[Rfam]
RNA: mir-8834 microRNA precursor family
Organism: Canis lupus
RNA sequence: AGGAGGAACAACCCCCGUGGCUGCCACAGCUCUGGAAACCUGGGUCAGCCCCCGCAGUCACCACGGAGCUCUCGGUCUGCAGGGCCUGGAGGCUCCGGGGCCGC
Numbered sequence: 001a002g003g004a005g006g007a008a009c010a011a012c013c014c015c016c017g018u019g020g021c022u023g024c025c026a027c028a029g030c031u032c033u034g035g036a037a038a039c040c041u042g043g044g045u046c047a048g049c050c051c052c053c054g055c056a057g058u059c060a061c062c063a064c065g066g067a068g069c070u071c072u073c074g075g076u077c078u079g080c081a082g083g084g085c086c087u088g089g090a091g092g093c094u095c096c097g098g099g100g101c102c103g104c
Base pairs, nucleotide, nucleotide: 002096003095004094005093009088010087012084013083014082019077020076021075022074023073028070029069030068031067032066033065034064040057041056042055